[Rfam]
RNA sequence: GCCAAGGUGUGUGGAAGCGAACGGAAUAUAUAUAUAUAUAUAUAUAUAUAUUCCGUUCGCUUCCACACAACUUGGC
Numbered sequence: 001g002c003c004a005a006g007g008u009g010u011g012u013g014g015a016a017g018c019g020a021a022c023g024g025a026a027u028a029u030a031u032a033u034a035u036a037u038a039u040a041u042a043u044a045u046a047u048a049u050a051u052u053c054c055g056u057u058c059g060c061u062u063c064c065a066c067a068c069a070a071c072u073u074g075g076c
Base pairs, nucleotide, nucleotide: 002075003074004073005072006071008069009068010067011066012065013064014063015062016061017060018059019058020057022055023054024053025052026051029050030049031048032047033042034041
Shown here is a 76-nucleotide sequence from Apostichopus japonicus, a member of the family "mir-2763 microRNA precursor family". A search with the family's covariance model found it, with a score of 52 bits. The base pairs follow the family's consensus structure, which was predicted with RNAalifold. Gene Ontology terms of the family: RISC complex and miRNA-mediated post-transcriptional gene silencing.